The record is a 78-nucleotide RNA sequence from Novosphingobium sp. 9U, which matches "Makes More Granules Regulator RNA (mmgR)" in Rfam. The match comes from Rfam's covariance-model search (48 bits). Rfam classes the family as a small RNA. Taxonomically the source falls in Novosphingobium (Bacteria, Pseudomonadati, Alphaproteobacteria, Sphingomonadales). For this family Rfam cites "Evidence for a second class of S-adenosylmethionine riboswitches and other regulatory RNA motifs in alpha-proteobacteria" (Corbino et al., Genome Biol, 2005).
[Rfam]
RNA sequence: CAAAAUGGCCUUUCAGGCAUCCUCUCCCAAAACUUCCAUGGCUCGGUCGGCAACGAUCGAGCCUUUUUUCUUGCGUGC
Number, nucleotide and partner (000 for none) at each position: 001c000002a000003a000004a000005a000006u000007g000008g018009c017010c016011u015012u000013u000014c000015a011016g010017g009018c008019a000020u000021c000022c000023u000024c000025u000026c000027c000028c000029a000030a000031a000032a000033c000034u000035u000036c000037c000038a000039u000040g063041g062042c061043u060044c059045g058046g057047u056048c055049g000050g000051c000052a000053a000054c000055g048056a047057u046058c045059g044060a043061g042062c041063c040064u000065u000066u000067u000068u000069u000070c000071u000072u000073g000074c000075g000076u000077g000078c000